[Rfam]
RNA sequence: UGACUGUAAUGGUCGAAAGGUUAAGGAGGUCUCCACAUCCCAGUUCUGAUUUCCCUUUUCAUUCCAACGGCAAACGGUGUCCGGUUCGAACCCCGUGGUGGGCGUCUCACCUGUGCGAGUAAUCCACAGCGCUGAGUGCCUCUAAGGGCGAGAAAUAUCCUUCAGGGAAGCAAUUCUGCAGAGAGUUCUCCCCACGGGGUGGCGGCGCCGGACUGCACUGUGCGCCGGUAUGGGAAGUUAGGACAGGGCGGUGAUCAACUUUUUGAUGUUUUUUU
Numbered sequence: 001u002g003a004c005u006g007u008a009a010u011g012g013u014c015g016a017a018a019g020g021u022u023a024a025g026g027a028g029g030u031c032u033c034c035a036c037a038u039c040c041c042a043g044u045u046c047u048g049a050u051u052u053c054c055c056u057u058u059u060c061a062u063u064c065c066a067a068c069g070g071c072a073a074a075c076g077g078u079g080u081c082c083g084g085u086u087c088g089a090a091c092c093c094c095g096u097g098g099u100g101g102g103c104g105u106c107u108c109a110c111c112u113g114u115g116c117g118a119g120u121a122a123u124c125c126a127c128a129g130c131g132c133u134g135a136g137u138g139c140c141u142c143u144a145a146g147g148g149c150g151a152g153a154a155a156u157a158u159c160c161u162u163c164a165g166g167g168a169a170g171c172a173a174u175u176c177u178g179c180a181g182a183g184a185g186u187u188c189u190c191c192c193c194a195c196g197g198g199g200u201g202g203c204g205g206c207g208c209c210g211g212a213c214u215g216c217a218c219u220g221u222g223c224g225c226c227g228g229u230a231u232g233g234g235a236a237g238u239u240a241g242g243a244c245a246g247g248g249c250g251g252u253g254a255u256c257a258a259c260u261u262u263u264u265g266a267u268g269u270u271u272u273u274u275u
Stems, first nucleotide, its partner, number of pairs: 001015004016273006027263003032258001034253003039248003043244012068227004074221007081211005086205003090200009100141001102139003106136004111129005117124002142146001150190005158185001160183003167176003
This 275-nucleotide sequence from Morchella conica belongs to the Rfam family "Fungal signal recognition particle RNA".
The literature on the family includes a 2002 paper in Curr Opin Struct Biol by Wild et al., "Towards the structure of the mammalian signal recognition particle".
The family's consensus secondary structure is taken from published work.
Lineage of the source: Eukaryota > Fungi > Pezizomycetes > Morchellaceae > Morchella conica.